The family of this 86-nucleotide RNA sequence from Ziziphus jujuba is "Small nucleolar RNA Z102/R77".
The match comes from Rfam's covariance-model search (82 bits).
A reference for the family is Chen et al. (2003), "The high diversity of snoRNAs in plants: identification and comparative study of 120 snoRNA genes from Oryza sativa", Nucleic Acids Res.
The family is grouped with related families in Rfam's "SNORD44 clan".
[Rfam]
RNA sequence: GAACGAAAUGAUGAGUAAUUUAUUUCCCUAUUGGUUUGAAAGCCGUAAUGAUGGCGAAAAUCAGUAUUAGCUCUAGCUGAUCGUUC
Numbered sequence: 001g002a003a004c005g006a007a008a009u010g011a012u013g014a015g016u017a018a019u020u021u022a023u024u025u026c027c028c029u030a031u032u033g034g035u036u037u038g039a040a041a042g043c044c045g046u047a048a049u050g051a052u053g054g055c056g057a058a059a060a061u062c063a064g065u066a067u068u069a070g071c072u073c074u075a076g077c078u079g080a081u082c083g084u085u086c
Stems, first nucleotide, its partner, number of pairs: 002085004042055003